Overview
Shown here is a 228-nucleotide part of an RNA from Candidatus Desulfofervidus auxilii, a member of the family "Bacterial large subunit ribosomal RNA". The organism belongs to Candidatus Desulfofervidus, within Bacteria. Pairs were carried over by alignment from the consensus structure, which is taken from published work. For this family Rfam cites "Crystal structure of the ribosome at 5.5 A resolution" (Yusupov et al., Science, 2001).
RNA sequence: GAGUUACUCUUGGCGGCAAGGUUAAGCCGUGAGGCGGAGCCGUAGCGAAAGCGAGUCUUAACAGGGCGUUUAGUCGUCAGGAGUAGACCCGAAGCCAGGUGAUCUAUCCAUGGCCAGGGUGAAGUCCGGGUAACGCCGGAUGGAGGCCCGCACCGGUUGGGGUUGAAAACCCAUCGGAUGAGCUGUGGAUAGGAGUGAAAGGCUAAUCAAACCUGGUGAUAGCUGGUU
Numbered sequence: 001g002a003g004u005u006a007c008u009c010u011u012g013g014c015g016g017c018a019a020g021g022u023u024a025a026g027c028c029g030u031g032a033g034g035c036g037g038a039g040c041c042g043u044a045g046c047g048a049a050a051g052c053g054a055g056u057c058u059u060a061a062c063a064g065g066g067c068g069u070u071u072a073g074u075c076g077u078c079a080g081g082a083g084u085a086g087a088c089c090c091g092a093a094g095c096c097a098g099g100u101g102a103u104c105u106a107u108c109c110a111u112g113g114c115c116a117g118g119g120u121g122a123a124g125u126c127c128g129g130g131u132a133a134c135g136c137c138g139g140a141u142g143g144a145g146g147c148c149c150g151c152a153c154c155g156g157u158u159g160g161g162g163u164u165g166a167a168a169a170c171c172c173a174u175c176g177g178a179u180g181a182g183c184u185g186u187g188g189a190u191a192g193g194a195g196u197g198a199a200a201g202g203c204u205a206a207u208c209a210a211a212c213c214u215g216g217u218g219a220u221a222g223c224u225g226g227u228u
Stems, first nucleotide, its partner, number of pairs: 005085013020041004026035003045052002055067004088226002091223001095216006104192011115180001117149004124141006153177003158173004194204003